RNA sequence: UCCUAGCCACCAAGGUUUAUAUGGGGUGGACAUGGAUUAGACGGAUAGUGCCAUGACUCAAGAAAAACGCCGUCAGUA
Numbered sequence: 001u002c003c004u005a006g007c008c009a010c011c012a013a014g015g016u017u018u019a020u021a022u023g024g025g026g027u028g029g030a031c032a033u034g035g036a037u038u039a040g041a042c043g044g045a046u047a048g049u050g051c052c053a054u055g056a057c058u059c060a061a062g063a064a065a066a067a068c069g070c071c072g073u074c075a076g077u078a
Stems, first nucleotide, its partner, number of pairs: 001015002004012001007029005031055005040074005